[Rfam]
Shown here is an 84-nucleotide sequence from Soehngenia longivitae, a member of the family "c-di-GMP-I riboswitch aptamer". The base pairs follow the family's consensus structure, which is taken from published work. A search with the family's covariance model found it, with a score of 73 bits. From the family's description: GEMM was predicted in a large-scale screen for bacterial structured RNA regulatory elements.
RNA sequence: UAAACAAACAGGCAAACUUAUCGAAAGAUAAGGACGCAAAGCUAUGAGUCUAAGGUUAGAUGCUAGGAUGGUCAAGCUGCUUUU
Dot-bracket structure: ...........((...((((((....))))))...))..((((.((((((....((.....))...)))..)))))))......
Numbered sequence: 001u002a003a004a005c006a007a008a009c010a011g012g013c014a015a016a017c018u019u020a021u022c023g024a025a026a027g028a029u030a031a032g033g034a035c036g037c038a039a040a041g042c043u044a045u046g047a048g049u050c051u052a053a054g055g056u057u058a059g060a061u062g063c064u065a066g067g068a069u070g071g072u073c074a075a076g077c078u079g080c081u082u083u084u
Stems, first nucleotide, its partner, number of pairs: 012037002017032006040078004045074003048069003055063002